A member of the RNA family "L31-Coriobacteria ribosomal protein leader", 32 nucleotides long. On this family, see Eckert and Weinberg, BMC Microbiol 2020: "Discovery of 20 novel ribosomal leader candidates in bacteria and archaea". The sequence is in the family's curated seed alignment. Rfam classes the family as a cis-regulatory leader. The family has 75 seed sequences and 105 matches in Rfam 15.1.
RNA sequence: CGCCUGGUCGGAAACCAGGCCAACGUAAGGAG
Numbered sequence: 001c002g003c004c005u006g007g008u009c010g011g012a013a014a015c016c017a018g019g020c021c022a023a024c025g026u027a028a029g030g031a032g
Base pairs, nucleotide, nucleotide: 002020003019004018005017006016007015008014